[Rfam]
This 97-nucleotide RNA belongs to the Rfam family "THF (Tetrahydrofolate) riboswitch aptamer". The family has 101 seed sequences and 747 matches in Rfam 15.1.
RNA sequence: AACAGAGUAAGACCCUGCGCGUUAAGUGCCGCAUCAACGGGGAGUUGUGCUGCGGACGAAGGUAUUGACCGCGGUGCAGGGUCUGCAUCCCGCUGCU
Dot-bracket structure: (.(((....(((((((((((((...((.(((((.((...[[[.[...)).)))))))...(((....)))))).)))))))))).].]]]..))).)
Numbered sequence: 001a002a003c004a005g006a007g008u009a010a011g012a013c014c015c016u017g018c019g020c021g022u023u024a025a026g027u028g029c030c031g032c033a034u035c036a037a038c039g040g041g042g043a044g045u046u047g048u049g050c051u052g053c054g055g056a057c058g059a060a061g062g063u064a065u066u067g068a069c070c071g072c073g074g075u076g077c078a079g080g081g082u083c084u085g086c087a088u089c090c091c092g093c094u095g096c097u
Stems, first nucleotide, its partner, number of pairs: 001097001003095003010084010020073003026057002029055005035049002040090003044086001061070003
Rfam's curators put it in the seed alignment.